[Rfam]
UnaL2 LINE 3' element: a 55-nucleotide RNA from Carassius auratus.
Lineage of the source: Eukaryota > Eumetazoa > Teleostei > Osteoglossocephalai > Carassius.
It is annotated as a cis-regulatory element.
RNA sequence: AACACACACACACUGUAAGUCGCUUUGGAUAAAAGCGUAUGCUAAAUGCAUAAAU
Dot-bracket structure: .............((((...((((((.....))))))..))).)...........